[Rfam]
RNA sequence: GAAGAGGGACAGGUGAUCGCCGGCCCGCUGUCAUGGCGGGCGGGAGGAAAGUCCGGGCUCCGCAGGGCAGGAUGGUUCCUAACGGGAACCGGGGGUGACCCCAGGGAAAGUGCCACAGAGAGAAGACCGCCACUGAAACGCUUCGGCGGAGACGUGGUAAGGGUGAAAGGGUGAGGUAAGAGCUCACCAGGUCCGGCGGUGACGUCGGAUGCUCGGUAAACCCCAUCCGGAGCAAGGCCGAAUAGGGGAGUGUUUGAGGGCGGCCCGUCCGAGACUCCCGGGUAGGCUGCUUGAGGCCGUCGGCAACGGCGGUCCUAGAUGAAUGAUCACCACCCCGCCGGGGGUAACCGCGGUGGGGGACAGGACCCGGCUUAUGGCCCUCUUCGGCC
Numbered sequence: 001g002a003a004g005a006g007g008g009a010c011a012g013g014u015g016a017u018c019g020c021c022g023g024c025c026c027g028c029u030g031u032c033a034u035g036g037c038g039g040g041c042g043g044g045a046g047g048a049a050a051g052u053c054c055g056g057g058c059u060c061c062g063c064a065g066g067g068c069a070g071g072a073u074g075g076u077u078c079c080u081a082a083c084g085g086g087a088a089c090c091g092g093g094g095g096u097g098a099c100c101c102c103a104g105g106g107a108a109a110g111u112g113c114c115a116c117a118g119a120g121a122g123a124a125g126a127c128c129g130c131c132a133c134u135g136a137a138a139c140g141c142u143u144c145g146g147c148g149g150a151g152a153c154g155u156g157g158u159a160a161g162g163g164u165g166a167a168a169g170g171g172u173g174a175g176g177u178a179a180g181a182g183c184u185c186a187c188c189a190g191g192u193c194c195g196g197c198g199g200u201g202a203c204g205u206c207g208g209a210u211g212c213u214c215g216g217u218a219a220a221c222c223c224c225a226u227c228c229g230g231a232g233c234a235a236g237g238c239c240g241a242a243u244a245g246g247g248g249a250g251u252g253u254u255u256g257a258g259g260g261c262g263g264c265c266c267g268u269c270c271g272a273g274a275c276u277c278c279c280g281g282g283u284a285g286g287c288u289g290c291u292u293g294a295g296g297c298c299g300u301c302g303g304c305a306a307c308g309g310c311g312g313u314c315c316u317a318g319a320u321g322a323a324u325g326a327u328c329a330c331c332a333c334c335c336c337g338c339c340g341g342g343g344g345u346a347a348c349c350g351c352g353g354u355g356g357g358g359g360a361c362a363g364g365a366c367c368c369g370g371c372u373u374a375u376g377g378c379c380c381u382c383u384u385c386g387g388c389c
Stems, first nucleotide, its partner, number of pairs: 001385008010376002012331007020044002023041006049373003053370005058232004065266004070228005075089005090104001091102004105223002110221002112217003127162002129158005170188006190212001191210008236288004246279006258270004295314008
The record is a 389-nucleotide RNA from Geothermobacter hydrogeniphilus, which matches "Bacterial RNase P class A" in Rfam. The match comes from Rfam's covariance-model search (305 bits).